RNA sequence: CUGGAGACUAAGGAGACAGAGUCCGUGCCGUCAAGCUGACUCCACCCUUAGCCUCCUACAUGAAAAGGUAGAUAGAACAGGUCUUGGUGCAAGAUAAAUUCAAGACCUACUUCUCUGCCAACAGCC
Numbered sequence: 001c002u003g004g005a006g007a008c009u010a011a012g013g014a015g016a017c018a019g020a021g022u023c024c025g026u027g028c029c030g031u032c033a034a035g036c037u038g039a040c041u042c043c044a045c046c047c048u049u050a051g052c053c054u055c056c057u058a059c060a061u062g063a064a065a066a067g068g069u070a071g072a073u074a075g076a077a078c079a080g081g082u083c084u085u086g087g088u089g090c091a092a093g094a095u096a097a098a099u100u101c102a103a104g105a106c107c108u109a110c111u112u113c114u115c116u117g118c119c120a121a122c123a124g125c126c
Stems, first nucleotide, its partner, number of pairs: 003056004008051004019042005024035001026033002067119006074112001079108008